[Rfam]
RNA sequence: AGCAAGCGUUAGUGAUGGCAACGGCAUCCUUUUUCUGCUGAGGGAAAGCAGCACAAAAAGAUAUAGUAAAAAGCACGACCUGAA
Numbered sequence: 001a002g003c004a005a006g007c008g009u010u011a012g013u014g015a016u017g018g019c020a021a022c023g024g025c026a027u028c029c030u031u032u033u034u035c036u037g038c039u040g041a042g043g044g045a046a047a048g049c050a051g052c053a054c055a056a057a058a059a060g061a062u063a064u065a066g067u068a069a070a071a072a073g074c075a076c077g078a079c080c081u082g083a084a
Stems, first nucleotide, its partner, number of pairs: 012076003016072001021067002026062003032057003036053004
Annotation
A member of the RNA family "Flavo-1 RNA" from Polaribacter sp. Hel1_33_78, 84 nucleotides long. The family's consensus secondary structure is taken from published work. Taxonomically the source falls in Polaribacter (Bacteria, Bacteroidota, Flavobacteriia, Flavobacteriaceae). A search with the family's covariance model found it, with a score of 44 bits.